[Rfam]
Nucleotides: 122
Base pairs, nucleotide, nucleotide: 011032012031013030015028016027017026018025034070035069036068037067038066044056045055046054047053048052082119083118084117085116087115088114089113090112092111093110094109095108096107
Number, partner (000 for none) and nucleotide at each position: 001000a002000u003000a004000a005000a006000a007000a008000a009000a010000a011032c012031c013030u014000a015028c016027a017026g018025g019000c020000a021000a022000a023000a024000a025018c026017c027016u028015g029000c030013a031012g032011g033000a034070u035069c036068c037067u038066u039000c040000u041000a042000u043000a044056u045055c046054c047053u048052a049000a050000a051000u052048u053047a054046g055045g056044a057000a058000a059000g060000a061000a062000g063000g064000u065000a066038a067037a068036g069035g070034g071000a072000g073000a074000g075000g076000a077000g078000a079000a080000a081000c082119c083118g084117g085116a086000g087115g088114a089113a090112g091000a092111a093110c094109u095108u096107a097000u098000g099000g100000g101000g102000a103000a104000a105000c106000g107096u108095a109094a110093g111092u112090c113089u114088u115087c116085u117084c118083c119082g120000c121000g122000g

The family of this 122-nucleotide sequence from Bacillus sp. B1-b2 is "ylbH leader". Gene Ontology term of the family: regulation of gene expression. About the family: This family is a putative regulatory RNA structure that is found upstream of the ylbH gene in B. subtilis and related low GC Gram-positive bacteria.